[Rfam]
RNA sequence: AUAUAAAAUGACUAUAAGUUGCUUUGGAUAAAAGCGUCUGCUAAAUGGCAGAUA
Dot-bracket structure: ............(.((...((((((.....))))))..))..)...........

UnaL2 LINE 3' element: a 54-nucleotide RNA from Salmo trutta. The organism belongs to Salmo, within Eukaryota. The family's consensus secondary structure is taken from published work. On this family, see Baba et al., RNA 2004: "Solution structure of an RNA stem-loop derived from the 3' conserved region of eel LINE UnaL2".